[Rfam]
RNA sequence: CUGUUUGCUGUUGGAGCAUCAUCAAGAUUCACAAUUUUAGGGUUCUUUUUUUGAUUGAUUUGAUCAAUCAGCCUUUUUAUGAUUGAGAAUCCUGAUGAUGCUGCAGUGGCAAUAAG
Numbered sequence: 001c002u003g004u005u006u007g008c009u010g011u012u013g014g015a016g017c018a019u020c021a022u023c024a025a026g027a028u029u030c031a032c033a034a035u036u037u038u039a040g041g042g043u044u045c046u047u048u049u050u051u052u053g054a055u056u057g058a059u060u061u062g063a064u065c066a067a068u069c070a071g072c073c074u075u076u077u078u079a080u081g082a083u084u085g086a087g088a089a090u091c092c093u094g095a096u097g098a099u100g101c102u103g104c105a106g107u108g109g110c111a112a113u114a115a116g
Base pairs, nucleotide, nucleotide: 010107011106012105013104015102016101017100018099019098020097021096022095023094024093026091027090028089029088030087032085033084